[Rfam]
Nucleotides: 508
Stems, first nucleotide, its partner, number of pairs: 006393006015384001018331001024328002028325001031322002039315001042312004048308001051305005057239002060236001062235003067232001068119004078110001080109002083106001086099004120231004125226002130219001132217002135213001136211002139208001141206003146203002152199002158191001160189003164181001169176001240299001243293003247289002253286005259280003264273002332345004355381001358378003364374002394434005400428001402426001404424001406421002410418001440479001442477002445474001447472001450468003454464002480507002483504003488501004
Number, partner (000 for none) and nucleotide at each position: 001000u002000u003000c004000a005000g006393g007392g008391u009390g010389u011388g012000c013000u014000c015384c016000c017000a018331g019000a020000c021000c022000c023000c024328g025327g026000c027000c028325u029000c030000c031322g032321g033000g034000c035000u036000g037000c038000c039315c040000a041000g042312c043311g044310c045309c046000u047000g048308g049000u050000c051305g052304c053303c054302g055301g056000u057239g058238a059000a060236g061000u062235c063234g064233c065000c066000g067232u068119c069118g070117g071116c072000c073000a074000g075000c076000a077000c078110c079000c080109c081108c082000a083106g084000c085000u086099c087098g088097g089096c090000c091000u092000c093000c094000u095000g096089g097088u098087c099086g100000u101000a102000g103000g104000c105000g106083c107000c108081g109080g110078g111000a112000a113000c114000c115000a116071g117070c118069c119068g120231c121230c122229g123228g124000a125226u126225c127000u128000u129000g130219c131000c132217g133216u134000g135213c136211g137210c138000c139208a140000c141206c142205a143204g144000u145000a146203c147202g148000g149000c150000g151000u152199a153198c154000u155000c156000g157000g158191c159000g160189g161188g162187g163000c164181u165000g166000c167000c168000g169176g170000c171000c172000u173000c174000g175000a176169c177000g178000a179000u180000g181164a182000c183000g184000u185000c186000c187162c188161c189160c190000g191158g192000g193000g194000u195000g196000a197000g198153g199152u200000c201000g202147c203146g204143c205142u206141g207000u208139u209000c210137g211136c212000a213135g214000g215000c216133g217132c218000c219130g220000g221000c222000c223000a224000g225126g226125g227000c228123c229122u230121g231120g232067a233064g234063u235062g236060c237000c238058u239057c240299g241000g242000c243293g244292u245291c246000c247289u248288c249000g250000c251000a252000u253286c254285c255284g256283u257282g258000c259280a260279g261278c262000a263000g264273c265272g266000g267000g268000a269000g270000u271000u272265c273264g274000g275000u276000g277000a278261g279260u280259u281000c282257c283256g284255c285254g286253g287000g288248g289247a290000u291245g292244a293243c294000c295000u296000g297000c298000a299240c300000c301055u302054c303053g304052g305051c306000a307000c308048c309045g310044g311043u312042g313000g314000a315039g316000a317000g318000g319000a320000a321032u322031u323000c324000c325028a326000c327025c328024c329000g330000c331018c332345c333344g334343u335342u336000g337000c338000c339000c340000a341000g342335g343334g344333u345332g346000u347000g348000g349000g350000u351000c352000a353000g354000c355381c356000u357000c358378c359377g360376g361000u362000u363000g364374a365373c366000c367000c368000g369000g370000a371000a372000a373365g374364u375000g376360c377359c378358g379000c380000c381355g382000c383000c384015g385000a386000c387000c388011u389010g390009u391008a392007c393006c394434c395433a396432g397431g398430g399000c400428a401000g402426c403000a404424c405000c406421u407420u408000g409000a410418g411000c412000a413000g414000c415000c416000a417000g418410c419000g420407g421406g422000a423000g424404g425000a426402g427000a428400u429000c430398c431397c432396c433395u434394g435000c436000a437000u438000c439000u440479g441000g442477g443476g444000a445474g446000g447472g448000g449000u450468u451467u452466u453000g454464g455463u456000g457000g458000u459000g460000g461000u462000g463455g464454c465000g466452a467451g468450a469000u470000u471000g472447c473000g474445c475000g476443c477442c478000g479440c480507c481506g482000c483504c484503g485502u486000g487000c488501u489500c490499a491498g492000g493000c494000u495000c496000u497000g498491c499490u500489g501488a502485a503484c504483g505000c506481c507480g508000g
Source information: The record is a 508-nucleotide RNA from Streptomyces aidingensis, which matches "Saccharopolyspora sRNA 350" in Rfam. Lineage of the source: Bacteria > Actinomycetota > Kitasatosporales > Streptomycetaceae > Streptomyces. It scores 73 bits against the family's covariance model.